This 321-nucleotide RNA sequence from Cisticola juncidis belongs to the Rfam family "7SK RNA". Taxonomically the source falls in Cisticola (Eukaryota, Gnathostomata, Dinosauria, Coelurosauria). The literature on the family includes a 2002 paper in Curr Biol by Blencowe, "Transcription: surprising role for an elusive small nuclear RNA". The family is grouped with related families in Rfam's "7SK clan".
RNA sequence: GGAUAUGAGGGCAAUCUGGCUGUGAGAUCUGAUAUGCAUGAGUUGGUCUGACUGAUCUGGUUAGCUUAGGCAGGUGUUUGCUUUCUUCCUUGACAUUCCAUGUAUGUUCCUCCUGAUGCUGUGUGCUCAGUUAAUGAGGACAGCCUCCCCAGUAGACAUGGUAUUGUUCACUGGUCAAGGGUUUGUGGUAGCUGUGCUCCCCUGCUGGAAGCUCUAAGUAAACUCAAGAUCCCUUUGUAGAUGAGUGUAGGGUAGUCAAGCAUCCAAUGCUGAAGACAUAUCCAAAUGAGAAGCUGCAUGCAGCAGCCUGCCAGUGGCUUU
Numbered sequence: 001g002g003a004u005a006u007g008a009g010g011g012c013a014a015u016c017u018g019g020c021u022g023u024g025a026g027a028u029c030u031g032a033u034a035u036g037c038a039u040g041a042g043u044u045g046g047u048c049u050g051a052c053u054g055a056u057c058u059g060g061u062u063a064g065c066u067u068a069g070g071c072a073g074g075u076g077u078u079u080g081c082u083u084u085c086u087u088c089c090u091u092g093a094c095a096u097u098c099c100a101u102g103u104a105u106g107u108u109c110c111u112c113c114u115g116a117u118g119c120u121g122u123g124u125g126c127u128c129a130g131u132u133a134a135u136g137a138g139g140a141c142a143g144c145c146u147c148c149c150c151a152g153u154a155g156a157c158a159u160g161g162u163a164u165u166g167u168u169c170a171c172u173g174g175u176c177a178a179g180g181g182u183u184u185g186u187g188g189u190a191g192c193u194g195u196g197c198u199c200c201c202c203u204g205c206u207g208g209a210a211g212c213u214c215u216a217a218g219u220a221a222a223c224u225c226a227a228g229a230u231c232c233c234u235u236u237g238u239a240g241a242u243g244a245g246u247g248u249a250g251g252g253u254a255g256u257c258a259a260g261c262a263u264c265c266a267a268u269g270c271u272g273a274a275g276a277c278a279u280a281u282c283c284a285a286a287u288g289a290g291a292a293g294c295u296g297c298a299u300g301c302a303g304c305a306g307c308c309u310g311c312c313a314g315u316g317g318c319u320u321u
Stems, first nucleotide, its partner, number of pairs: 001099003006092006013084002018081001024078002027075005033069001035063001037059002107161002111156002113130004118126002131152002138148003191261003197255002200252006212243001215240001218238005284321003290312001293307005